[Rfam]
RNA sequence: AACAACUAAAAAAUAAACACUUAUAUAUGACUUUAAUAAGGAAAGUCGUUUCUACCUGAUACCGUAAAUAUCAGUCUAUAAGUAAAUGAAGGAUAGCU
Numbered sequence: 001a002a003c004a005a006c007u008a009a010a011a012a013a014u015a016a017a018c019a020c021u022u023a024u025a026u027a028u029g030a031c032u033u034u035a036a037u038a039a040g041g042a043a044a045g046u047c048g049u050u051u052c053u054a055c056c057u058g059a060u061a062c063c064g065u066a067a068a069u070a071u072c073a074g075u076c077u078a079u080a081a082g083u084a085a086a087u088g089a090a091g092g093a094u095a096g097c098u
Base pairs, nucleotide, nucleotide: 019083020082021081022080023079024078025077029047030046031045032044033043034042056074057073058072059071060070061069